[Rfam]
RNA: SAM riboswitch aptamer (S box leader)
RNA sequence: ACCUUAUCAAGAGCGGUGGAGGGAAGGGCCCGAGGAAACCCGGCAACCAUAGAAAGUAUGGUGCUAAAUCCUACAGAAUUUUAAUUCUGAAAGAUGAGGA
Numbered sequence: 001a002c003c004u005u006a007u008c009a010a011g012a013g014c015g016g017u018g019g020a021g022g023g024a025a026g027g028g029c030c031c032g033a034g035g036a037a038a039c040c041c042g043g044c045a046a047c048c049a050u051a052g053a054a055a056g057u058a059u060g061g062u063g064c065u066a067a068a069u070c071c072u073a074c075a076g077a078a079u080u081u082u083a084a085u086u087c088u089g090a091a092a093g094a095u096g097a098g099g100a
Base pairs, nucleotide, nucleotide: 002099003098004097005096006095007094008093013041015040016039017038021031022030023029026072027071028070042065043064044063045062047061048060049057050056069092074089075088076087077086078085079084